[Rfam]
RNA: SAM riboswitch aptamer (S box leader)
Nucleotides: 105
Stems, first nucleotide, its partner, number of pairs: 003103006013042001015041003021032003026080004043072004048068002051063001053061001076097001081094005
Number, partner (000 for none) and nucleotide at each position: 001000u002000a003103c004102u005101u006100a007099u008098c009000g010000a011000g012000a013042g014000u015041g016040a017039c018000g019000g020000a021032g022031g023030g024000a025000a026080c027079a028078g029077g030023c031022c032021c033000u034000u035000u036000g037000a038000a039017g040016u041015c042013c043072a044071g045070c046069a047000a048068c049067c050000a051063u052000c053061a054000a055000g056000c057000a058000u059000g060000c061053u062000u063051g064000a065000a066000a067049g068048g069046u070045g071044c072043u073000a074000a075000a076097u077029c078028c079027u080026g081094c082093a083092g084091g085090u086000u087000u088000u089000u090085a091084c092083c093082u094081g095000a096000a097076a098008g099007a100006u101005a102004a103003g104000g105000u